[Rfam]
RNA sequence: GAUAGUAUGGUAGAAAGAAAGAUUCAUAUUUUUCUUUCUACCAUACUAUCUAGUAUUGUCAUUGUACUGUAUAAAGUU
Numbered sequence: 001g002a003u004a005g006u007a008u009g010g011u012a013g014a015a016a017g018a019a020a021g022a023u024u025c026a027u028a029u030u031u032u033u034c035u036u037u038c039u040a041c042c043a044u045a046c047u048a049u050c051u052a053g054u055a056u057u058g059u060c061a062u063u064g065u066a067c068u069g070u071a072u073a074a075a076g077u078u
Base pairs, nucleotide, nucleotide: 001050002049003048004047005046006045007044008043009042010041011040012039013038014037015036016035017034018033019032020031021030022029023028